RNA sequence: CCAAAGGCUCUUUUAAGAGCCACCUACAUUUUCAACCAAGGAGCUG
Numbered sequence: 001c002c003a004a005a006g007g008c009u010c011u012u013u014u015a016a017g018a019g020c021c022a023c024c025u026a027c028a029u030u031u032u033c034a035a036c037c038a039a040g041g042a043g044c045u046g
Stems, first nucleotide, its partner, number of pairs: 006021006
Histone 3' UTR stem-loop: a 46-nucleotide sequence from Erpornis zantholeuca.
It is annotated as a cis-regulatory element.
The mRNAs of metazoan histone genes lack a poly-A tail. 3' end processing occurs at a site between a highly conserved stem-loop (modelled by this family) and a purine rich region around 20 nts downstream (the histone downstream element, or HDE). The stem-loop is bound by a 31 kDa stem-loop binding protein (SLBP - also termed the histone hairpin binding protein, or HBP). Together with U7 snRNA binding of the HDE, SLBP binding nucleate s the formation of the processing complex. The histone 3' UTR stem-loop is also involved in nucleocytoplasmic transport of the mRNA, and in stability regulation and translation efficiency in the cytoplasm.